RNA sequence: AAUAGUGUAGGCGAUGGAGUUCGCCCUCAAGCACUGACUUUAAAUAUUUAUUCAAAAGCUCGGUUAAUGACUCCUGUAAGACA
Number, nucleotide and partner (000 for none) at each position: 001a000002a000003u000004a000005g000006u000007g000008u000009a000010g025011g024012c023013g022014a000015u000016g074017g073018a072019g071020u070021u069022c013023g012024c011025c010026c000027u000028c000029a000030a000031g000032c000033a064034c063035u062036g061037a000038c000039u000040u000041u000042a000043a000044a000045u000046a000047u000048u000049u000050a000051u000052u000053c000054a000055a000056a000057a000058g000059c000060u000061c036062g035063g034064u033065u000066a000067a000068u000069g021070a020071c019072u018073c017074c016075u000076g000077u000078a000079a000080g000081a000082c000083a000